[Rfam]
Rfam assigns this 97-nucleotide RNA from Candidatus Doolittlea endobia to the family "t44 RNA". A search with the family's covariance model found it, with a score of 62 bits. Rfam describes the family as follows. This family consists of a number of bacterial RNA genes of between 135 and 170 bases in length. The family's consensus secondary structure was predicted with LocARNA. Lineage of the source: Bacteria > Pseudomonadati > Pseudomonadota > Enterobacteriaceae > Candidatus Doolittlea.
RNA sequence: AUAAAAACUGCGCUAUUACACACACGUAUCGAUACAUGUGCCGGGUGCUUUGAUCAUAAGGUCGAGGUCGUCCGUAUGGGAUAUGUGGAGGCAUAAC
Dot-bracket structure: ......................((((((((....((((((.((...(((((............))))))).).))))).))))))))..........